mir-363 microRNA precursor family: an 85-nucleotide RNA sequence from Esox lucius. On this family, see Linsen et al., BMC Genomics 2010: "Small RNA expression and strain specificity in the rat". Its family is annotated with miRNA-mediated post-transcriptional gene silencing and RISC complex in the Gene Ontology. The organism belongs to Esox, within Eukaryota.
RNA sequence: GUUGUUUUCGGGUGGAUGACUUAGCAAUUUUAAUUAUGUCCAAAAUUGACAAAAGAAAUUGCACGGUAUCCAUCUGUAAUCAGCC
Numbered sequence: 001g002u003u004g005u006u007u008u009c010g011g012g013u014g015g016a017u018g019a020c021u022u023a024g025c026a027a028u029u030u031u032a033a034u035u036a037u038g039u040c041c042a043a044a045a046u047u048g049a050c051a052a053a054a055g056a057a058a059u060u061g062c063a064c065g066g067u068a069u070c071c072a073u074c075u076g077u078a079a080u081c082a083g084c085c
Stems, first nucleotide, its partner, number of pairs: 009076009019067002024062008

Pairs were carried over by alignment from the consensus structure, which was predicted with RNAalifold. Its Rfam clan is "mir-19 clan".